[Rfam]
RNA: Wolbachia sRNA 46
RNA sequence: ACUCAUUAGAGCUCUUAUUGUCAUCCCAGUGCUUGACACUGGGAUCCAUACUAUUUUUUUUCUGGAUUCCAGUGUCAAGCACUGGAAUGACACCGAAAGGAGGACUAUUU
Numbered sequence: 001a002c003u004c005a006u007u008a009g010a011g012c013u014c015u016u017a018u019u020g021u022c023a024u025c026c027c028a029g030u031g032c033u034u035g036a037c038a039c040u041g042g043g044a045u046c047c048a049u050a051c052u053a054u055u056u057u058u059u060u061u062c063u064g065g066a067u068u069c070c071a072g073u074g075u076c077a078a079g080c081a082c083u084g085g086a087a088u089g090a091c092a093c094c095g096a097a098a099g100g101a102g103g104a105c106u107a108u109u110u
Stems, first nucleotide, its partner, number of pairs: 011105001013103003019092006026085023
Dot-bracket structure: ..........(.(((...((((((.(((((((((((((((((((((((..............))))))))))))))))))))))).))))))........))).).....